[Rfam]
RNA sequence: CAAAAGGAUAUCUAGGGUUCCGAUUAGUUGUUGAUUUAUUACAAGUAAUGUCUGGUCCGAGAGUUAUCAACCUGGCUAAUAUAUUCCUAGAAUAUAUUUUGCAUCUGCAAGGGUUACACGGAGGGAUAAAAGCCCGGGAGGU
Numbered sequence: 001c002a003a004a005a006g007g008a009u010a011u012c013u014a015g016g017g018u019u020c021c022g023a024u025u026a027g028u029u030g031u032u033g034a035u036u037u038a039u040u041a042c043a044a045g046u047a048a049u050g051u052c053u054g055g056u057c058c059g060a061g062a063g064u065u066a067u068c069a070a071c072c073u074g075g076c077u078a079a080u081a082u083a084u085u086c087c088u089a090g091a092a093u094a095u096a097u098u099u100u101g102c103a104u105c106u107g108c109a110a111g112g113g114u115u116a117c118a119c120g121g122a123g124g125g126a127u128a129a130a131a132g133c134c135c136g137g138g139a140g141g142u
Base pairs, nucleotide, nucleotide: 007068008067009066010065012063015058016057020055021054022052023049024048025047026046028044029043030042031041069115070114071113072112073111117137119140123135124134125133
This 142-nucleotide RNA from Agaribacter marinus belongs to the Rfam family "Guanidine-I riboswitch aptamer". Lineage of the source: Bacteria > Gammaproteobacteria > Alteromonadales > Alteromonadaceae > Agaribacter. The family has 100 seed sequences and 1,509 matches in Rfam 15.1. It scores 74 bits against the family's covariance model.